[Rfam]
Shown here is an 80-nucleotide RNA sequence from Nostoc sp. PCC 7524, a member of the family "Photosynthesis regulatory RNA1". Lineage of the source: Bacteria > Cyanobacteriota > Nostocales > Nostocaceae > Nostoc. For this family Rfam cites "The small regulatory RNA SyR1/PsrR1 controls photosynthetic functions in cyanobacteria" (Georg et al., Plant Cell, 2014). Rfam's curators write: Formerly known as Syr1 discovered in Synechocystis sp PCC 6803, is a regulatory factor controlling photosynthetic functions. PsrR1 interacts with the ribosome binding regions of several photosynthesis-related mRNAs. In particular, psaL mRNA is processed by RNase E only in the presence of PsrR1. Rfam classes the family as a small RNA.
RNA sequence: AAAAUUUUUAAUUUCGGUAUCAGCUUCUCAUCGUCAUUCGGACUUCUCCUCAUCACCUCAGCUUGGCGGCUGGGGUUUUU
Numbered sequence: 001a002a003a004a005u006u007u008u009u010a011a012u013u014u015c016g017g018u019a020u021c022a023g024c025u026u027c028u029c030a031u032c033g034u035c036a037u038u039c040g041g042a043c044u045u046c047u048c049c050u051c052a053u054c055a056c057c058u059c060a061g062c063u064u065g066g067c068g069g070c071u072g073g074g075g076u077u078u079u080u
Stems, first nucleotide, its partner, number of pairs: 055076008